[Rfam]
RNA sequence: CCUGCGGUCAGACGGAAAGACCCCGUGCACCUUUACUAUAGCUUUACACUGGCAUUCGUGUCGGCAUGUGUAGGAUAGGUGGUAGGCUUUGAAGCGUGGGCGCCAGCUCGCGUGGAGCCAUCCUUGAAAUACCACCCUUAUCGUCAUGGAUGUCUAACCGCGGUCCGUCAUCCGGAUCCGGGACAGUGUAUGGUGGGUAGUUUGACUGGGGCGGUCGCCUCCCAAAGAGUAACGGAGGCGCGCGAUGGUGGGCUCAGACCGGUCGGAAAUCGGUCGUCGAGUGCAAUGGCAUAAGCCCGCCUGACUGCGAGACAGACAAGUCGAGCAGAGACGAAAGUCGGUCAUAGUGAUCCGGUGGUCCCCCGCGUGGAAGGGCCAUCGCUCAACGGAUAAAAGGUACGCCGGGGAUAACAGGCUGAUGACCCCCAAGAGUCCAUAUCGACGGGGUUGUUUGGCACCUCGAUGUCGACUCAUCGCAUCCUGGGGCUGGAGCAGGUCCCAAGGGUAUGGCUGUUCGCCAUUUAAAGCGGUACGUGAGUUGGGUUCAGAACGUCGUGAGACAGUUCGGUCCCUAUCUGCCGUGGGUGUC
Dot-bracket structure: ((((((((.(((.((......((((.(((((((.((((...((.((((..((((((((((.(((.(.(.........(((((..(((......((((((((....))))))))...)))............)))))).).))).))))))))))...(((.((((((.....))))))))).....)))).))....))))..((((.....))))((((((...........))))))(.((....((((((((.((((((.......))))))...))((......))....))))))....((((..(((......)))..)))).(((....))).))..........(((((((...((........))))))))).....)......)))))..))))))........(((.((((((((...((.......))...)))))))..))))..........(((((((((((..((.((((((......))))))...)).(((((.....))))).....)))))..)..)))).).....(((((((....))).))))....))..)))))))))))....

Bacterial large subunit ribosomal RNA: a 589-nucleotide part of an RNA from Aureimonas endophytica. The match comes from Rfam's covariance-model search (2643 bits). The family's consensus secondary structure is taken from published work. Rfam links the family to the GO terms ribosome and structural constituent of ribosome.